[Rfam]
RNA sequence: AAUAUUAAAGGUGAUGGAGUUCACCAUAACUGCGUAAUGUUAAUGACUCCUAUGGGUAA
Numbered sequence: 001a002a003u004a005u006u007a008a009a010g011g012u013g014a015u016g017g018a019g020u021u022c023a024c025c026a027u028a029a030c031u032g033c034g035u036a037a038u039g040u041u042a043a044u045g046a047c048u049c050c051u052a053u054g055g056g057u058a059a
Stems, first nucleotide, its partner, number of pairs: 010025004016050006032040002

A member of the RNA family "Fluoride riboswitch aptamer (crcB RNA motif)" from Anaerosalibacter bizertensis, 59 nucleotides long. The base pairs follow the family's consensus structure, which is taken from published work.